[Rfam]
RNA: Rhodo-rpoB RNA
RNA sequence: CGAUCGGGAGGCUGCCUGUGGGAAGGUGGCCAGGUAUGGAUCGGAUCCCCCCGCGUUCAAGGGCGCGCGACCGUAGCCCGACGGUCGUGCA
Number, nucleotide and partner (000 for none) at each position: 001c043002g042003a041004u040005c039006g000007g000008g000009a000010g031011g030012c029013u028014g027015c026016c025017u024018g000019u000020g000021g000022g000023a000024a017025g016026g015027u014028g013029g012030c011031c010032a000033g000034g000035u000036a000037u000038g000039g005040a004041u003042c002043g001044g000045a000046u000047c000048c000049c000050c000051c000052c000053g000054c000055g000056u000057u000058c000059a000060a000061g000062g000063g000064c000065g090066c089067g088068c087069g086070a085071c084072c083073g082074u000075a000076g000077c000078c000079c000080g000081a000082c073083g072084g071085u070086c069087g068088u067089g066090c065091a000